[Rfam]
Shown here is a 74-nucleotide RNA sequence from Pleuronectes platessa, a member of the family "Small nucleolar RNA SNORD26". Rfam 15.1 lists 451 matches to the family in 401 species. The organism belongs to Pleuronectes, within Eukaryota. Pairs were carried over by alignment from the consensus structure, which was predicted with PFOLD. A search with the family's covariance model found it, with a score of 48 bits. A reference for the family is Tycowski et al. (1996), "A mammalian gene with introns instead of exons generating stable RNA products", Nature.

RNA sequence: CUGCGGUGAUGAUACCAGAACUCUCUCUUACUGAAUCAGCCUUGAAGAAACUCCUUUACCAGAUUCUGAGCAGC
Numbered sequence: 001c002u003g004c005g006g007u008g009a010u011g012a013u014a015c016c017a018g019a020a021c022u023c024u025c026u027c028u029u030a031c032u033g034a035a036u037c038a039g040c041c042u043u044g045a046a047g048a049a050a051c052u053c054c055u056u057u058a059c060c061a062g063a064u065u066c067u068g069a070g071c072a073g074c
Stems, first nucleotide, its partner, number of pairs: 001073004